About this RNA:
Makes More Granules Regulator RNA (mmgR): a 75-nucleotide sequence from Sphingomonas prati. The organism belongs to Sphingomonas, within Bacteria. On this family, see Valverde et al., BMC Genomics 2008: "Prediction of Sinorhizobium meliloti sRNA genes and experimental detection in strain 2011". By type it is a small RNA.
[Rfam]
RNA sequence: GGAUCGGGCCUUUCAGGCAUCCUCUCCUAAAACUUUACGGGCUGCUCCUCGGGGUGGCCCUUUUUUUUGCCCGAC
Numbered sequence: 001g002g003a004u005c006g007g008g009c010c011u012u013u014c015a016g017g018c019a020u021c022c023u024c025u026c027c028u029a030a031a032a033c034u035u036u037a038c039g040g041g042c043u044g045c046u047c048c049u050c051g052g053g054g055u056g057g058c059c060c061u062u063u064u065u066u067u068u069g070c071c072c073g074a075c
Stems, first nucleotide, its partner, number of pairs: 008018004039060009